SAH (S-adenosyl-L-homocysteine) riboswitch aptamer: a 77-nucleotide sequence. The match comes from Rfam's covariance-model search (57 bits). The base pairs follow the family's consensus structure, which is taken from published work.

RNA sequence: GUUUCCGAGGAGCGCUGCAAGGUCGACCCGCCCGUCGCCCCAGGCUCGGAACCUGUUUCCAACGGCGCUCACCAACC
Numbered sequence: 001g002u003u004u005c006c007g008a009g010g011a012g013c014g015c016u017g018c019a020a021g022g023u024c025g026a027c028c029c030g031c032c033c034g035u036c037g038c039c040c041c042a043g044g045c046u047c048g049g050a051a052c053c054u055g056u057u058u059c060c061a062a063c064g065g066c067g068c069u070c071a072c073c074a075a076c077c
Stems, first nucleotide, its partner, number of pairs: 003051006021039002024037004